[Rfam]
RNA sequence: GGGGCAACUAUAGCCCAGCAGUUACUUCGGUGUUACAUAUGUUUGUAUCUCGCCCCAUCAGGGGUUCAAUCCCGCGGGCACCUCUGGCUCACUUU
Numbered sequence: 001g002g003g004g005c006a007a008c009u010a011u012a013g014c015c016c017a018g019c020a021g022u023u024a025c026u027u028c029g030g031u032g033u034u035a036c037a038u039a040u041g042u043u044u045g046u047a048u049c050u051c052g053c054c055c056c057a058u059c060a061g062g063g064g065u066u067c068a069a070u071c072c073c074g075c076g077g078g079c080a081c082c083u084c085u086g087g088c089u090c091a092c093u094u095u
Base pairs, nucleotide, nucleotide: 002090003089004088005087007085013079014078015077016076018075019074021072026069029067030066
Dot-bracket structure: .((((.(.....((((.((.(....(..((...................................)).)..).)))))).....).)))).....
Rfam assigns this 95-nucleotide RNA from Ardeotis kori to the family "Vault RNA". Pairs were carried over by alignment from the consensus structure, which is taken from published work. From the family's description: This family of RNAs are found as part of the enigmatic vault ribonucleoprotein complex. The complex consists of a major vault protein (MVP), two minor vault proteins (VPARP and TEP1), and several small untranslated RNA molecules. It has been suggested that the vault complex is involved in drug resistance. The match comes from Rfam's covariance-model search (40 bits). The source organism's lineage runs through Eukaryota, Opisthokonta, Euteleostomi, Dinosauria and Ardeotis. The family has 73 seed sequences and 2,873 matches in Rfam 15.1. By type it is a non-coding RNA gene.